[Rfam]
RNA: pemK RNA
Organism: Butyricicoccus sp. TM10-16AC
RNA sequence: AUAAUGAGACUUCCGCCCAGCCACAGACACAAGCAAUGGGGGCGGCUGAUGUGAGAACCACGCAGAGGUAAAACGGCCUAUGG
Numbered sequence: 001a002u003a004a005u006g007a008g009a010c011u012u013c014c015g016c017c018c019a020g021c022c023a024c025a026g027a028c029a030c031a032a033g034c035a036a037u038g039g040g041g042g043c044g045g046c047u048g049a050u051g052u053g054a055g056a057a058c059c060a061c062g063c064a065g066a067g068g069u070a071a072a073a074c075g076g077c078c079u080a081u082g083g
Stems, first nucleotide, its partner, number of pairs: 012080001013045006046065003051061003066079003
Dot-bracket structure: ...........(((((((.....................))))))(((..(((.....))).)))(((........))))...